[Rfam]
RNA sequence: UACGUGAGUAGAAGCGGUUAGAUGCCAAUGACGGCGUCGGGACAUUGCUCAUAGU
Numbered sequence: 001u002a003c004g005u006g007a008g009u010a011g012a013a014g015c016g017g018u019u020a021g022a023u024g025c026c027a028a029u030g031a032c033g034g035c036g037u038c039g040g041g042a043c044a045u046u047g048c049u050c051a052u053a054g055u
Stems, first nucleotide, its partner, number of pairs: 005051006015040001018042002021038006